RNA sequence: GCGAUUGUGGUGAAGUGGUUAACACAGCGGAUUGUGGUUCCGCCACGCGUGGGUUCGAUCCCCAUCAGUCGCC
Numbered sequence: 001g002c003g004a005u006u007g008u009g010g011u012g013a014a015g016u017g018g019u020u021a022a023c024a025c026a027g028c029g030g031a032u033u034g035u036g037g038u039u040c041c042g043c044c045a046c047g048c049g050u051g052g053g054u055u056c057g058a059u060c061c062c063c064a065u066c067a068g069u070c071g072c073c
Stems, first nucleotide, its partner, number of pairs: 001072007010025003027043005049065005
Overview
Shown here is a 73-nucleotide sequence from Carnobacterium divergens, a member of the family "tRNA". Rfam classes the family as a transfer RNA. NCBI's taxonomy places the organism under Bacteria, Bacillota, Carnobacteriaceae, Carnobacterium, Carnobacterium divergens. Pairs were carried over by alignment from the consensus structure, which is taken from published work.